[Rfam]
RNA sequence: UGCGCAGCGCGUGUUUCAGCACGAUGGCGCGGAACCCAACGCCCUUCAGCCGGGCGGUGCGGAUGUACUGCGCGGUCAUCACCUCGGCCAUGGACGCUCGCGUCAUCCGGGCGAUAUAGCCCAUGCCAUACAGCGCGAUGGUCAGCACCGGCAGAAAGAAAUUCUCGAAAUCCGGGGC
Numbered sequence: 001u002g003c004g005c006a007g008c009g010c011g012u013g014u015u016u017c018a019g020c021a022c023g024a025u026g027g028c029g030c031g032g033a034a035c036c037c038a039a040c041g042c043c044c045u046u047c048a049g050c051c052g053g054g055c056g057g058u059g060c061g062g063a064u065g066u067a068c069u070g071c072g073c074g075g076u077c078a079u080c081a082c083c084u085c086g087g088c089c090a091u092g093g094a095c096g097c098u099c100g101c102g103u104c105a106u107c108c109g110g111g112c113g114a115u116a117u118a119g120c121c122c123a124u125g126c127c128a129u130a131c132a133g134c135g136c137g138a139u140g141g142u143c144a145g146c147a148c149c150g151g152c153a154g155a156a157a158g159a160a161a162u163u164c165u166c167g168a169a170a171u172c173c174g175g176g177g178c
Base pairs, nucleotide, nucleotide: 005140006139008137009136010135011134012133015130016128019126020125021124029122031120040111042109046105048103051100052099053098054097055075057073058072059071060070061069062068082096084094085093145178146177148175149174150173151172154165156163157162